[Rfam]
RNA sequence: UGUAUGUCAAUAGCGCCAGGACUGAAUAUUCAGUUGACGAGGUGAAGGUGAUCGAACAAUUCGGCGGAUGCCUUCCAGUAUUAGCCUAUGCUGCAAGAGAUGAACGAAAAACAUUGGGCGACCAGUGGAUACAAGGGACUCUCAAGGCUAAGU
Numbered sequence: 001u002g003u004a005u006g007u008c009a010a011u012a013g014c015g016c017c018a019g020g021a022c023u024g025a026a027u028a029u030u031c032a033g034u035u036g037a038c039g040a041g042g043u044g045a046a047g048g049u050g051a052u053c054g055a056a057c058a059a060u061u062c063g064g065c066g067g068a069u070g071c072c073u074u075c076c077a078g079u080a081u082u083a084g085c086c087u088a089u090g091c092u093g094c095a096a097g098a099g100a101u102g103a104a105c106g107a108a109a110a111a112c113a114u115u116g117g118g119c120g121a122c123c124a125g126u127g128g129a130u131a132c133a134a135g136g137g138a139c140u141c142u143c144a145a146g147g148c149u150a151a152g153u
Stems, first nucleotide, its partner, number of pairs: 020035006044075005052064004076093006097143004112127006
The record is a 153-nucleotide RNA sequence from Desulfuribacillus stibiiarsenatis, which matches "glmS glucosamine-6-phosphate activated ribozyme aptamer" in Rfam. Rfam links the family to the GO terms regulation of gene expression and catalytic activity. A reference for the family is Winkler et al. (2004), "Control of gene expression by a natural metabolite-responsive ribozyme", Nature.